[Rfam]
RNA sequence: GGGCUGGCUUUAGCCCAGUGGUUCCUUUGACUUUGGCUUCCCAACCUCCUGGACCGCUGGCUUCCCUCGGUCUGGCUUCCCUCGGUCUGGUGGUUUGAGACCCACAGGCACUCUCCAGUCUUUGA
Dot-bracket structure: .((((((.....(((..((((....(((((................................................................)))))..)))).))).....)))))).....
Numbered sequence: 001g002g003g004c005u006g007g008c009u010u011u012a013g014c015c016c017a018g019u020g021g022u023u024c025c026u027u028u029g030a031c032u033u034u035g036g037c038u039u040c041c042c043a044a045c046c047u048c049c050u051g052g053a054c055c056g057c058u059g060g061c062u063u064c065c066c067u068c069g070g071u072c073u074g075g076c077u078u079c080c081c082u083c084g085g086u087c088u089g090g091u092g093g094u095u096u097g098a099g100a101c102c103c104a105c106a107g108g109c110a111c112u113c114u115c116c117a118g119u120c121u122u123u124g125a
Stems, first nucleotide, its partner, number of pairs: 002120006013109003018105004026099005
Rfam assigns this 125-nucleotide RNA from Cavia porcellus to the family "Vault RNA". The base pairs follow the family's consensus structure, which is taken from published work. The match comes from Rfam's covariance-model search (53 bits). This family of RNAs are found as part of the enigmatic vault ribonucleoprotein complex. The complex consists of a major vault protein (MVP), two minor vault proteins (VPARP and TEP1), and several small untranslated RNA molecules. It has been suggested that the vault complex is involved in drug resistance.